[Rfam]
RNA: SAM riboswitch aptamer (S box leader)
RNA sequence: CUCUUAUCAAGAGCGGCGGAGGGACUGGCCCGAUGAAGCCCGGCAACCGGCAGAAAUGCAAGGUGCUAAAUCCAGCAAAGCAGUGUGCUUUGGAAGAUGAGAG
Dot-bracket structure: ((((((((....(.(((...(((.[[[[)))......))))((((.((.(((....)))..))))))...(]]]]((((((.....))))))..)))))))))